[Rfam]
A member of the RNA family "Small nucleolar RNA SNORA47" from Laticauda laticaudata, 133 nucleotides long.

RNA sequence: AGGAGGUCUGAGAAAAUAAGGCAGUUCCAAGUACUGCAUUUAUUGGUUACAACCUCCAAAAUAAAACUGUGCAAAAGCAAGUCAUUUUCCUUUAACUUACUGGAUAUAGGAAUACCAUUGCUACUUGCACAUA
Number, nucleotide and partner (000 for none) at each position: 001a000002g057003g056004a055005g054006g053007u000008c000009u000010g000011a000012g000013a000014a000015a044016a043017u042018a041019a039020g000021g037022c036023a035024g034025u033026u000027c000028c000029a000030a000031g000032u000033a025034c024035u023036g022037c021038a000039u019040u000041u018042a017043u016044u015045g000046g000047u000048u000049a000050c000051a000052a000053c006054c005055u004056c003057c002058a000059a000060a000061a000062u000063a000064a000065a000066a000067c000068u000069g000070u000071g000072c000073a000074a000075a000076a125077g124078c000079a000080a000081g121082u120083c000084a118085u117086u000087u000088u000089c000090c000091u000092u112093u111094a000095a000096c109097u000098u108099a107100c000101u000102g000103g000104a000105u000106a000107u099108a098109g096110g000111a093112a092113u000114a000115c000116c000117a085118u084119u000120g082121c081122u000123a000124c077125u076126u000127g000128c000129a000130c000131a000132u000133a000
Overview
Gene Ontology terms of the family: RNA processing and nucleolus. The organism belongs to Laticauda, within Eukaryota. Pairs were carried over by alignment from the consensus structure, which was predicted with WAR.